Record summary
Rfam assigns this 88-nucleotide sequence from Mesorhizobium sp. L103C119B0 to the family "DUF3800-VII RNA". The organism belongs to Mesorhizobium, within Bacteria. It is one of the family's seed sequences. By type it is a small RNA.
RNA sequence: GGCAGGCAAGCGCCGGAGCUACCCCGAGUUGCCCUAGGGCAGCAGCAUCCUAGCGAUGUGCAUCAGGGGUCCGGGGGCCUGUCACCUU
Numbered sequence: 001g002g003c004a005g006g007c008a009a010g011c012g013c014c015g016g017a018g019c020u021a022c023c024c025c026g027a028g029u030u031g032c033c034c035u036a037g038g039g040c041a042g043c044a045g046c047a048u049c050c051u052a053g054c055g056a057u058g059u060g061c062a063u064c065a066g067g068g069g070u071c072c073g074g075g076g077g078c079c080u081g082u083c084a085c086c087u088u
Base pairs, nucleotide, nucleotide: 001083002082003081004080005079006078007077011075013074014073015072016071021070022069023068024067025066028043029042030041031040032039033038046058047057048056049055